[Rfam]
RNA: Xanthomonas sRNA sX7
RNA sequence: AGUUUUCACCUAUCGCGGGGCGGCGGAGUCAGUGCCGUCGUACCCGCGGUAGCUUUUAUGCACGCCAGGAGGGCAGGCGCCAAGGAUGGCGCGAU
Number, nucleotide and partner (000 for none) at each position: 001a000002g000003u000004u000005u000006u000007c000008a000009c000010c052011u051012a050013u049014c048015g047016c046017g045018g044019g043020g000021c040022g039023g038024c037025g036026g035027a000028g000029u000030c000031a000032g000033u000034g000035c026036c025037g024038u023039c022040g021041u000042a000043c019044c018045c017046g016047c015048g014049g013050u012051a011052g010053c000054u000055u000056u000057u000058a000059u000060g000061c000062a000063c000064g074065c073066c072067a000068g000069g000070a000071g000072g066073g065074c064075a000076g000077g092078c091079g090080c089081c088082a000083a000084g000085g000086a000087u000088g081089g080090c079091g078092c077093g000094a000095u000